A member of the RNA family "U2 spliceosomal RNA" from Actinidia chinensis, 195 nucleotides long. Rfam classes the family as a spliceosomal small nuclear RNA. The family has 208 seed sequences and 71,512 matches in Rfam 15.1. Rfam describes the family as follows. U2 is a small nuclear RNA (snRNA) component of the spliceosome (involved in pre-mRNA splicing). Complementary binding between U2 snRNA (in an area lying towards the 5' end but 3' to hairpin I) and the branchpoint sequence (BPS) of the intron results the bulging out of an unpaired adenosine, on the BPS, which initiates a nucleophilic attack at the intronic 5' splice site, thus starting the first of two transesterification reactions that mediate splicing.
[Rfam]
RNA sequence: AUACCUUUCUCGGCCUUUUGGCUAAGAUCAAGUGUAGUAUUUGUUCUUAUCAGUUUAAUAUCUGAUACGUGGGUCAAUGGCCCACACGAUAUUAAAUUAAUUUUUUAAGGGGAAGGCCCCAUCCAGUAGCUUGCUACUGUGGGCCUUUAGCGUCGCUCAGGAGUUGCACUAUCGCCUGGGCUUGGUGCACCCCAC
Numbered sequence: 001a002u003a004c005c006u007u008u009c010u011c012g013g014c015c016u017u018u019u020g021g022c023u024a025a026g027a028u029c030a031a032g033u034g035u036a037g038u039a040u041u042u043g044u045u046c047u048u049a050u051c052a053g054u055u056u057a058a059u060a061u062c063u064g065a066u067a068c069g070u071g072g073g074u075c076a077a078u079g080g081c082c083c084a085c086a087c088g089a090u091a092u093u094a095a096a097u098u099a100a101u102u103u104u105u106u107a108a109g110g111g112g113a114a115g116g117c118c119c120c121a122u123c124c125a126g127u128a129g130c131u132u133g134c135u136a137c138u139g140u141g142g143g144c145c146u147u148u149a150g151c152g153u154c155g156c157u158c159a160g161g162a163g164u165u166g167c168a169c170u171a172u173c174g175c176c177u178g179g180g181c182u183u184g185g186u187g188c189a190c191c192c193c194a195c
Stems, first nucleotide, its partner, number of pairs: 008027003012023004048067006069085007113147007126137004150188006157179005